The family of this 86-nucleotide sequence from Monoraphidium neglectum is "Selenocysteine transfer RNA".
Lineage of the source: Eukaryota > Chlorophyta > Chlorophyceae > Selenastraceae > Monoraphidium.
On this family, see Mizutani and Goto, FEBS Lett 2000: "Eukaryotic selenocysteine tRNA has the 9/4 secondary structure".
The family's consensus secondary structure is taken from published work.
Rfam 15.1 lists 4,211 matches to the family in 3,344 species.
A search with the family's covariance model found it, with a score of 80 bits.

[Rfam]
RNA sequence: GCCACCAUGAUCCCAGCUGGUGCUGGGCGCGGACUUCAAAUCCGUGGCGGCCGAGAGGCCGAGUGGUUCGAUUCCACCUUGGAGGC
Numbered sequence: 001g002c003c004a005c006c007a008u009g010a011u012c013c014c015a016g017c018u019g020g021u022g023c024u025g026g027g028c029g030c031g032g033a034c035u036u037c038a039a040a041u042c043c044g045u046g047g048c049g050g051c052c053g054a055g056a057g058g059c060c061g062a063g064u065g066g067u068u069c070g071a072u073u074c075c076a077c078c079u080u081g082g083a084g085g086c
Base pairs, nucleotide, nucleotide: 001086002085003084005082006081007080009078012027013026014025015024016023017022028046029045030044031043032042033041048061049060050059051058052057063077064076065075066074